[Rfam]
RNA sequence: AUUGCAUCAAUGAUGUUUGACCUCUUCUAGCCAUCCUUGCACUUUGAUAGCCAAUGAAGACACUAUGGGGCAAAUUGUAGACUGGGAUGCUU
Numbered sequence: 001a002u003u004g005c006a007u008c009a010a011u012g013a014u015g016u017u018u019g020a021c022c023u024c025u026u027c028u029a030g031c032c033a034u035c036c037u038u039g040c041a042c043u044u045u046g047a048u049a050g051c052c053a054a055u056g057a058a059g060a061c062a063c064u065a066u067g068g069g070g071c072a073a074a075u076u077g078u079a080g081a082c083u084g085g086g087a088u089g090c091u092u
Stems, first nucleotide, its partner, number of pairs: 004090005
RNA: Small nucleolar RNA snoR26